RNA sequence: AAGUAACAGUCUGUGGCAGAUGGUCAAAACUGUCUGACAGAAUUUGAGCUUGCUAUAGCAACAAAGUCUAACCUAUUCCAGUGCUCUCUCUUCUAUGAGACAAGCCAUUAUAUAAACUUAGACAGU
Numbered sequence: 001a002a003g004u005a006a007c008a009g010u011c012u013g014u015g016g017c018a019g020a021u022g023g024u025c026a027a028a029a030c031u032g033u034c035u036g037a038c039a040g041a042a043u044u045u046g047a048g049c050u051u052g053c054u055a056u057a058g059c060a061a062c063a064a065a066g067u068c069u070a071a072c073c074u075a076u077u078c079c080a081g082u083g084c085u086c087u088c089u090c091u092u093c094u095a096u097g098a099g100a101c102a103a104g105c106c107a108u109u110a111u112a113u114a115a116a117c118u119u120a121g122a123c124a125g126u
Stems, first nucleotide, its partner, number of pairs: 010047002012041001014039002017036006064119004069114002074112003081105002087100004
Dot-bracket structure: .........(((.((.((((((........)))))).)).)....))................((((.((...(((....((....((((......))))...))....))))).)))).......
RNA: Small nucleolar RNA SNORA28
Organism: Myotis brandtii